RNA: Selenocysteine insertion sequence 1
Organism: Geotrypetes seraphini
RNA sequence: CCUGUAUUUUGUGAUAGUCUGAUCUUAAAGUUGUUUUAGCAGGAUCAGACUUGAUUUCUGACAGC
Dot-bracket structure: .((((..........((((((((((......(......)..)))))))))).........)))).